[Rfam]
RNA: FMN riboswitch aptamer (RFN element)
Organism: Staphylococcus simulans
RNA sequence: AUUCAUCUUCGGGGUCGGGUGCAAUUCCCAACCGGCAGUAAUUUUAAGCCUGCGACCUGUAUUUAUCUUUGGAUAAAUAUGGCUGAUCUAGUGAGAUUCUAGAGCCGACAGUAUAGUCUGGAUGGGAGAAGAUGGAG
Numbered sequence: 001a002u003u004c005a006u007c008u009u010c011g012g013g014g015u016c017g018g019g020u021g022c023a024a025u026u027c028c029c030a031a032c033c034g035g036c037a038g039u040a041a042u043u044u045u046a047a048g049c050c051u052g053c054g055a056c057c058u059g060u061a062u063u064u065a066u067c068u069u070u071g072g073a074u075a076a077a078u079a080u081g082g083c084u085g086a087u088c089u090a091g092u093g094a095g096a097u098u099c100u101a102g103a104g105c106c107g108a109c110a111g112u113a114u115a116g117u118c119u120g121g122a123u124g125g126g127a128g129a130a131g132a133u134g135g136a137g
Base pairs, nucleotide, nucleotide: 003135004134005133006132007131008130009129010128017029018028019027031117032116033107034106035053036052037051038050048105049104057082058081059080060079061078087103088102089101090100091099109120110119111118